[Rfam]
RNA sequence: UGAUCUGUCAUGGGGGCCAUUGAAGGAGCGUUCACGUCGCGGUCCCUGUCAGAUGAAAAUCUGCGAAUCCUUCA
Numbered sequence: 001u002g003a004u005c006u007g008u009c010a011u012g013g014g015g016g017c018c019a020u021u022g023a024a025g026g027a028g029c030g031u032u033c034a035c036g037u038c039g040c041g042g043u044c045c046c047u048g049u050c051a052g053a054u055g056a057a058a059a060u061c062u063g064c065g066a067a068u069c070c071u072u073c074a
Base pairs, nucleotide, nucleotide: 013046014045015044016043017042018041021074022073023072024071025070026069027068028040029039030038050063051062052061053060054059
Dot-bracket structure: ............[[[[[[..((((((((((.......)))]]]]]]...(((((....)))))....)))))))